[Rfam]
RNA: Purine riboswitch aptamer
RNA sequence: GAAUAGGCUGUCAAUCACCUUCAUAUAAUCCCGAUAAUCGGUUCGGGAGUCUCUACCAAAUCACCGGAAAUGAUUUGACUAUGAAGGCAGAUCCUGUAUGU
Numbered sequence: 001g002a003a004u005a006g007g008c009u010g011u012c013a014a015u016c017a018c019c020u021u022c023a024u025a026u027a028a029u030c031c032c033g034a035u036a037a038u039c040g041g042u043u044c045g046g047g048a049g050u051c052u053c054u055a056c057c058a059a060a061u062c063a064c065c066g067g068a069a070a071u072g073a074u075u076u077g078a079c080u081a082u083g084a085a086g087g088c089a090g091a092u093c094c095u096g097u098a099u100g101u
Stems, first nucleotide, its partner, number of pairs: 018087008029048006057077007